[Rfam]
RNA sequence: CUACUCAUGCACAGAAUCACCUUUCAUUAUCUAACAGUGCAUGAAGGUUAGAUAUUCCA
Numbered sequence: 001c002u003a004c005u006c007a008u009g010c011a012c013a014g015a016a017u018c019a020c021c022u023u024u025c026a027u028u029a030u031c032u033a034a035c036a037g038u039g040c041a042u043g044a045a046g047g048u049u050a051g052a053u054a055u056u057c058c059a
Base pairs, nucleotide, nucleotide: 007042008041009040010039011038012037028054029053030052031051032050033049034048035047
A member of the RNA family "Coronavirus 3' UTR pseudoknot" from Deltacoronavirus gallinulae, 59 nucleotides long. Coronaviruses are plus-strand RNA viruses with ~30kb genomes. The 3' UTR region of coronavirus genomes contains a conserved ~55nt pseudoknot structure which has been shown to be necessary for viral genome replication. The mechanism of cis-regulation is unclear, but this element is postulated to function in the plus-strand. The seed alignment was expanded in 2020 by Eric Nawrocki. NCBI's taxonomy places the organism under Viruses, Pisuviricota, Coronaviridae, Deltacoronavirus, Deltacoronavirus gallinulae. By type it is a cis-regulatory element. Rfam's curators put it in the seed alignment. For this family Rfam cites "A phylogenetically conserved hairpin-type 3' untranslated region pseudoknot functions in coronavirus RNA replication" (Williams et al., J Virol, 1999).